Shown here is a 190-nucleotide RNA sequence from Caenorhabditis auriculariae, a member of the family "U2 spliceosomal RNA". Pairs were carried over by alignment from the consensus structure, which is taken from published work. Taxonomically the source falls in Caenorhabditis (Eukaryota, Opisthokonta, Metazoa, Nematoda). U2 is a small nuclear RNA (snRNA) component of the spliceosome (involved in pre-mRNA splicing). Complementary binding between U2 snRNA (in an area lying towards the 5' end but 3' to hairpin I) and the branchpoint sequence (BPS) of the intron results the bulging out of an unpaired adenosine, on the BPS, which initiates a nucleophilic attack at the intronic 5' splice site, thus starting the first of two transesterification reactions that mediate splicing. The family's RNA type in Rfam is spliceosomal small nuclear RNA.

RNA sequence: AUCGCUUCUCGGCCUAUUGGCUAAGAUCAAAGUGUAGUAUCUGUUCUUAUCGUAUUAACCUACGGUAUGUGCUCGAAUGAGUACAAUAUAGGUUAACUUAUUUUUGCAACCGAGAGUGGAUCCGGAGCUUGCUCCGACCGCUCAAGGGUCGUCCCAGCGUUGCACUGCUGCAGGGCACGGCCCAGACCUC
Numbered sequence: 001a002u003c004g005c006u007u008c009u010c011g012g013c014c015u016a017u018u019g020g021c022u023a024a025g026a027u028c029a030a031a032g033u034g035u036a037g038u039a040u041c042u043g044u045u046c047u048u049a050u051c052g053u054a055u056u057a058a059c060c061u062a063c064g065g066u067a068u069g070u071g072c073u074c075g076a077a078u079g080a081g082u083a084c085a086a087u088a089u090a091g092g093u094u095a096a097c098u099u100a101u102u103u104u105u106g107c108a109a110c111c112g113a114g115a116g117u118g119g120a121u122c123c124g125g126a127g128c129u130u131g132c133u134c135c136g137a138c139c140g141c142u143c144a145a146g147g148g149u150c151g152u153c154c155c156a157g158c159g160u161u162g163c164a165c166u167g168c169u170g171c172a173g174g175g176c177a178c179g180g181c182c183c184a185g186a187c188c189u190c
Stems, first nucleotide, its partner, number of pairs: 007026003011022004048067006069084006114143006121136001124135004146183006153175003157171002